[Rfam]
RNA sequence: AUGGUGGAUUCUGAAAAACCAUAUAUUGAAAAGAGUAGGAG
Numbered sequence: 001a002u003g004g005u006g007g008a009u010u011c012u013g014a015a016a017a018a019c020c021a022u023a024u025a026u027u028g029a030a031a032a033g034a035g036u037a038g039g040a041g
Base pairs, nucleotide, nucleotide: 002021003020004019005018010040011039012038

Rfam assigns this 41-nucleotide RNA sequence to the family "DUF805b RNA". Rfam classes the family as a cis-regulatory element. The family's consensus secondary structure is taken from published work.